[Rfam]
RNA sequence: CAAGCAGACCGCCUUAUCGCUGCCCCGUCCCGUUACAAUCGGGAGCGCGGGGUGGAGGAAAGUCCGGACACCAUAGGGCAGCAUAGUGGGUAACACCCACCGGCACUGAUGCAAAUCAGGGUCAGGACCAGUGCAACAGAAAGGAUGUACAGGUAAUGCUGUAGUGAAAUCAGGUAAACUCUAUGCGGUGCAAUGCCAUGUAUACCGGCUGUUAAGGAUUGCCCGUCCGUUGCCGGAGGGUAGGCAGCUAAAGGCUUUUGGUAACAAAAGUUUCAGAUAAAUGAUAAGGGCUCCUUUUGGAGAACAGAAUCCGGCUUACAGGUCUGCUUUUUUA
Numbered sequence: 001c002a003a004g005c006a007g008a009c010c011g012c013c014u015u016a017u018c019g020c021u022g023c024c025c026c027g028u029c030c031c032g033u034u035a036c037a038a039u040c041g042g043g044a045g046c047g048c049g050g051g052g053u054g055g056a057g058g059a060a061a062g063u064c065c066g067g068a069c070a071c072c073a074u075a076g077g078g079c080a081g082c083a084u085a086g087u088g089g090g091u092a093a094c095a096c097c098c099a100c101c102g103g104c105a106c107u108g109a110u111g112c113a114a115a116u117c118a119g120g121g122u123c124a125g126g127a128c129c130a131g132u133g134c135a136a137c138a139g140a141a142a143g144g145a146u147g148u149a150c151a152g153g154u155a156a157u158g159c160u161g162u163a164g165u166g167a168a169a170u171c172a173g174g175u176a177a178a179c180u181c182u183a184u185g186c187g188g189u190g191c192a193a194u195g196c197c198a199u200g201u202a203u204a205c206c207g208g209c210u211g212u213u214a215a216g217g218a219u220u221g222c223c224c225g226u227c228c229g230u231u232g233c234c235g236g237a238g239g240g241u242a243g244g245c246a247g248c249u250a251a252a253g254g255c256u257u258u259u260g261g262u263a264a265c266a267a268a269a270g271u272u273u274c275a276g277a278u279a280a281a282u283g284a285u286a287a288g289g290g291c292u293c294c295u296u297u298u299g300g301a302g303a304a305c306a307g308a309a310u311c312c313g314g315c316u317u318a319c320a321g322g323u324c325u326g327c328u329u330u331u332u333u334a
Base pairs, nucleotide, nucleotide: 002329003328004327005326006325007324008323009322010321011319012289013288014287015286016285017284018283020055021054022053023052024051025050026049027048028047060317061316062315064314065313066312067311068310069190070189071188072187076224077223078222079221081186082185083184084183085182086100087099088098089097090096101125102123103122104121126181127180131179132178133175134174194246195245196244197243205236206235207234208233209232216228217227218226219225253272254271255270256269257268258267259266260265